This 319-nucleotide RNA sequence from Daphnia magna belongs to the Rfam family "Nuclear RNase P". The literature on the family includes a 2000 paper in RNA by Frank et al., "Phylogenetic-comparative analysis of the eukaryal ribonuclease P RNA". Taxonomically the source falls in Daphnia (Eukaryota, Allotriocarida, Branchiopoda, Cladocera). The match comes from Rfam's covariance-model search (131 bits). The family's consensus secondary structure is taken from published work. Rfam describes the family as follows. Ribonuclease P (RNase P) is a ubiquitous endoribonuclease, found in archaea, bacteria and eukarya as well as chloroplasts and mitochondria. Its best characterised activity is the generation of mature 5'-ends of tRNAs by cleaving the 5'-leader elements of precursor-tRNAs. Cellular RNase Ps are ribonucleoproteins. RNA from bacterial RNase Ps retains its catalytic activity in the absence of the protein subunit, i.e. it is a ribozyme. Isolated eukaryotic and archaeal RNase P RNA has not been shown to retain its catalytic function, but is still essential for the catalytic activity of the holoenzyme. Although the archaeal and eukaryotic holoenzyme s have a much greater protein content than the bacterial ones, the RNA cores from all the three lineages are homologous -- helices corresponding to P1, P2, P3, P4, and P10/11 are common to all cellular RNase P RNAs. Yet, there is considerable sequence variation, particularly among the eukaryotic RNAs. The family's RNA type in Rfam is ribozyme.

RNA sequence: GCUUACGACAAUCCCGCAAAUGUGGAUCACAUACGGAGUACUGCAUUACUCAUUUAAAUCCUCGGGAAGGUCUGAGAAAAAGCCAGUCUCUUACAUGUAGAGUUCAUGUUCUAGCCGGACAACCUUCUUGUGAAGGUAUAGAGGAAUAGAAAGAUAUCGGUUGGAGGUUACCUGCCCACGAUGCCUCUUUGGCUAGGCGUUUUACUUCCAAAUACGAUUGGAACCGCCUCUGUGGCUUGCUUUUUGAGUAUAAUUUGCGGGAUGUGGUAUGCAUUGUUUCGCUACUACAAAACUCAAUUCAGACUAAUCUGUCGAAAGC
Numbered sequence: 001g002c003u004u005a006c007g008a009c010a011a012u013c014c015c016g017c018a019a020a021u022g023u024g025g026a027u028c029a030c031a032u033a034c035g036g037a038g039u040a041c042u043g044c045a046u047u048a049c050u051c052a053u054u055u056a057a058a059u060c061c062u063c064g065g066g067a068a069g070g071u072c073u074g075a076g077a078a079a080a081a082g083c084c085a086g087u088c089u090c091u092u093a094c095a096u097g098u099a100g101a102g103u104u105c106a107u108g109u110u111c112u113a114g115c116c117g118g119a120c121a122a123c124c125u126u127c128u129u130g131u132g133a134a135g136g137u138a139u140a141g142a143g144g145a146a147u148a149g150a151a152a153g154a155u156a157u158c159g160g161u162u163g164g165a166g167g168u169u170a171c172c173u174g175c176c177c178a179c180g181a182u183g184c185c186u187c188u189u190u191g192g193c194u195a196g197g198c199g200u201u202u203u204a205c206u207u208c209c210a211a212a213u214a215c216g217a218u219u220g221g222a223a224c225c226g227c228c229u230c231u232g233u234g235g236c237u238u239g240c241u242u243u244u245u246g247a248g249u250a251u252a253a254u255u256u257g258c259g260g261g262a263u264g265u266g267g268u269a270u271g272c273a274u275u276g277u278u279u280c281g282c283u284a285c286u287a288c289a290a291a292a293c294u295c296a297a298u299u300c301a302g303a304c305u306a307a308u309c310u311g312u313c314g315a316a317a318g319c
Base pairs, nucleotide, nucleotide: 001319002318003317004316008312009311010310013261014260015259016258017257018256019255022063024061025060026059036051037050038049039048040047072302073301074300075299076298081237082236083235084234107121108120109119110118111117122137123136124135125134126133127132138233139232140231141230142229143228144227157217158216159215263289264288265287266286267285268284